[Rfam]
RNA sequence: ACACACCACCACGGGAGCUCGCACCAGCGAGCUGAGAGGACGGCCAGGGCCGUCGACCGUUGAACCUGUCCGGGUAAUGCCGGCGUAGGGAGAUCUGCCGAAUGAGCA
Numbered sequence: 001a002c003a004c005a006c007c008a009c010c011a012c013g014g015g016a017g018c019u020c021g022c023a024c025c026a027g028c029g030a031g032c033u034g035a036g037a038g039g040a041c042g043g044c045c046a047g048g049g050c051c052g053u054c055g056a057c058c059g060u061u062g063a064a065c066c067u068g069u070c071c072g073g074g075u076a077a078u079g080c081c082g083g084c085g086u087a088g089g090g091a092g093a094u095c096u097g098c099c100g101a102a103u104g105a106g107c108a
Base pairs, nucleotide, nucleotide: 008094010092011060012059013058014057017032018031019030020029021028039054040053041052042051043050065089066088067087068086070083071082072081073080
Dot-bracket structure: .......(.(((((..(((((......)))))......(((((......)))))..))))....((((.((((......))))..))))..).)..............